[Rfam]
RNA sequence: GUACCUUGUUGGGCUUGAUGCAAUGCUUUUAGAGGCUAACACAGAGGGUAAAGUAAGUCUCCAUAAAACCCAGAGAAGAUUGUAAAAUUCUUCUCUGGAUCCUGUCUGGAGUCAAAGUG
Numbered sequence: 001g002u003a004c005c006u007u008g009u010u011g012g013g014c015u016u017g018a019u020g021c022a023a024u025g026c027u028u029u030u031a032g033a034g035g036c037u038a039a040c041a042c043a044g045a046g047g048g049u050a051a052a053g054u055a056a057g058u059c060u061c062c063a064u065a066a067a068a069c070c071c072a073g074a075g076a077a078g079a080u081u082g083u084a085a086a087a088u089u090c091u092u093c094u095c096u097g098g099a100u101c102c103u104g105u106c107u108g109g110a111g112u113c114a115a116a117g118u119g
Base pairs, nucleotide, nucleotide: 002050003049004048005047006046007045009044010043015039016038017037019035021032057113059111060110061109062108063107070098071097072096073095074094075093076092078090079089080087081086
Dot-bracket structure: .((((((.((....(((.(.(..........)..).)))...))))))))......(.(((((......(((((((.((((....)).)).)))))))........))))).)......
A member of the RNA family "Small nucleolar RNA SNORA26" from Sorex araneus, 119 nucleotides long.
The family's consensus secondary structure was predicted with RNAalifold.
About the family: The snoRNA HBI-6 belong to the H/ACA family of snoRNAs, guiding the pseudouridylation of position U4522 if the 28S rRNA. HBI-6 is the human orthologue of mouse MBI-6 snoRNA.
Rfam links the family to the GO terms nucleolus and RNA processing.
It is annotated as an H/ACA-box small nucleolar RNA.
It is one of the family's seed sequences.